RNA: FMN riboswitch aptamer (RFN element)
RNA sequence: AUUUUCCUUCGGGGCAGGGUGAAAUUCCCAACCGGCGGUGAUUUCGGCUGUGCGCAGGGGGCAAUCUUGUCCUUGGCAUCGGUCGGAUUAGUCCGUGACCCGUGACGGGACGCAAGUCUCGCCCGGUGGACCUGGUGCAACUCCGGGACCGACAGUAUAGUCUGGAUGGGAGAAGGAAUCG
Numbered sequence: 001a002u003u004u005u006c007c008u009u010c011g012g013g014g015c016a017g018g019g020u021g022a023a024a025u026u027c028c029c030a031a032c033c034g035g036c037g038g039u040g041a042u043u044u045c046g047g048c049u050g051u052g053c054g055c056a057g058g059g060g061g062c063a064a065u066c067u068u069g070u071c072c073u074u075g076g077c078a079u080c081g082g083u084c085g086g087a088u089u090a091g092u093c094c095g096u097g098a099c100c101c102g103u104g105a106c107g108g109g110a111c112g113c114a115a116g117u118c119u120c121g122c123c124c125g126g127u128g129g130a131c132c133u134g135g136u137g138c139a140a141c142u143c144c145g146g147g148a149c150c151g152a153c154a155g156u157a158u159a160g161u162c163u164g165g166a167u168g169g170g171a172g173a174a175g176g177a178a179u180c181g
Stems, first nucleotide, its partner, number of pairs: 004178007017029003031161002033151002035096004100126002131147005153164003